[Rfam]
RNA sequence: GGUUGGUCUGAAGGUAGAGUUAUCUCAGUUGAUUGUUUAUGGUUACAGGCUGAACCCUUGUUCUACUCUCUCCCCCUUCUCACUACUGCACUUGACUAGUCUUAU
Dot-bracket structure: ((((((((.((..((((((.......(((.((.............................)).)))...........))..))...))..))))))))))....

This 105-nucleotide RNA sequence from Pongo abelii belongs to the Rfam family "Y RNA". By type it is a non-coding RNA gene. The base pairs follow the family's consensus structure, which is taken from published work.